[Rfam]
RNA sequence: UUAACUCAAAAUUGUAUAAAGUUGGAACGUUUACCUACGUUUGCCGCUAGGGACGCUGCUCCACCUUCAUACCAAUUUGACUCA
Numbered sequence: 001u002u003a004a005c006u007c008a009a010a011a012u013u014g015u016a017u018a019a020a021g022u023u024g025g026a027a028c029g030u031u032u033a034c035c036u037a038c039g040u041u042u043g044c045c046g047c048u049a050g051g052g053a054c055g056c057u058g059c060u061c062c063a064c065c066u067u068c069a070u071a072c073c074a075a076u077u078u079g080a081c082u083c084a
Stems, first nucleotide, its partner, number of pairs: 008078003012074001014072003020066002023063004028058002034052003039047002